[Rfam]
Nucleotides: 062
Stems, first nucleotide, its partner, number of pairs: 034059002039054006
Number, partner (000 for none) and nucleotide at each position: 001000c002000a003000g004000c005000g006000u007000c008000a009000c010000a011000u012000c013000u014000g015000u016000u017000u018000u019000a020000g021000a022000a023000u024000u025000u026000g027000u028000c029000u030000a031000g032000g033000a034059g035058g036000u037000u038000u039054u040053c041052u042051g043050g044049u045000u046000u047000u048000u049044a050043c051042c052041a053040g054039a055000c056000u057000c058035c059034c060000c061000c062000a